[Rfam]
RNA: Pseudomonas sRNA P26
Organism: Sodalis ligni
RNA sequence: ACCUUUUGUACGGCAGCCUGAUUCUAGGCUGAUGGCUGGUGACUUUUGGGUCACCAGCCU
Numbered sequence: 001a002c003c004u005u006u007u008g009u010a011c012g013g014c015a016g017c018c019u020g021a022u023u024c025u026a027g028g029c030u031g032a033u034g035g036c037u038g039g040u041g042a043c044u045u046u047u048g049g050g051u052c053a054c055c056a057g058c059c060u
Stems, first nucleotide, its partner, number of pairs: 014031005034059010
Dot-bracket structure: .............(((((........)))))..((((((((((......)))))))))).